[Rfam]
RNA sequence: GCACAUCUAGUAGGAAUUGAACCUACAAAUUCACCAAUUAUGAGUUGGGCGCUUUGACCAUUCACCAAUUGAUGC
Numbered sequence: 001g002c003a004c005a006u007c008u009a010g011u012a013g014g015a016a017u018u019g020a021a022c023c024u025a026c027a028a029a030u031u032c033a034c035c036a037a038u039u040a041u042g043a044g045u046u047g048g049g050c051g052c053u054u055u056g057a058c059c060a061u062u063c064a065c066c067a068a069u070u071g072a073u074g075c
Base pairs, nucleotide, nucleotide: 004074005073006072007071010026011025012024013023014022040069041068044066046064047063048062049061051059
RNA: Plastid-ycf2 5UTR RNA